[Rfam]
Nucleotides: 107
Stems, first nucleotide, its partner, number of pairs: 001106004041055005
Number, partner (000 for none) and nucleotide at each position: 001106c002105c003104c004103c005000u006000g007000u008000g009000a010000u011000g012000a013000g014000u015000u016000g017000c018000c019000a020000u021000g022000c023000u024000a025000a026000u027000a028000c029000u030000g031000a032000g033000a034000c035000a036000c037000c038000a039000g040000g041055u042054a043053g044052g045051g046000a047000c048000u049000u050000a051045c052044c053043c054042u055041a056000u057000g058000u059000u060000g061000g062000g063000u064000g065000u066000u067000g068000u069000u070000g071000a072000g073000a074000u075000a076000a077000u078000c079000u080000u081000u082000a083000c084000u085000u086000c087000u088000c089000a090000u091000g092000a093000a094000u095000c096000u097000a098000u099000c100000u101000g102000a103004g104003g105002g106001g107000c

A member of the RNA family "Small nucleolar RNA U6-53/MBII-28" from Tupaia belangeri, 107 nucleotides long.
Rfam classes the family as a C/D-box small nucleolar RNA.
The organism belongs to Tupaia, within Eukaryota.